[Rfam]
This 188-nucleotide part of an RNA from Cytospora leucostoma belongs to the Rfam family "Ascomycota telomerase RNA".
RNA sequence: ACAAUUCCUGCUCUUCGUCACCCCGUGGCGUCGGGCAAUCUUUCCCUCUCCUGCUACCAGGAAUGGCCUGCAGGAAGAGAUGACAGCGCAGUUUUUGACGAUGUAUUUUGUCUGCGCGUGAACUUUGCCCUCCUUUGCCGCCCCCUUCGUGGGCUCGAUGGAGAGGAAACCAAAAACUAGUCCUUGUU
Numbered sequence: 001a002c003a004a005u006u007c008c009u010g011c012u013c014u015u016c017g018u019c020a021c022c023c024c025g026u027g028g029c030g031u032c033g034g035g036c037a038a039u040c041u042u043u044c045c046c047u048c049u050c051c052u053g054c055u056a057c058c059a060g061g062a063a064u065g066g067c068c069u070g071c072a073g074g075a076a077g078a079g080a081u082g083a084c085a086g087c088g089c090a091g092u093u094u095u096u097g098a099c100g101a102u103g104u105a106u107u108u109u110g111u112c113u114g115c116g117c118g119u120g121a122a123c124u125u126u127g128c129c130c131u132c133c134u135u136u137g138c139c140g141c142c143c144c145c146u147u148c149g150u151g152g153g154c155u156c157g158a159u160g161g162a163g164a165g166g167a168a169a170c171c172a173a174a175a176a177c178u179a180g181u182c183c184u185u186g187u188u
Stems, first nucleotide, its partner, number of pairs: 006038001009037003013033001016030001019027003045082001046079004051073004057066003100182003103177002106175005111169001128166002130163004139157002143153003
Background
The pairing is the family consensus, mapped onto this sequence.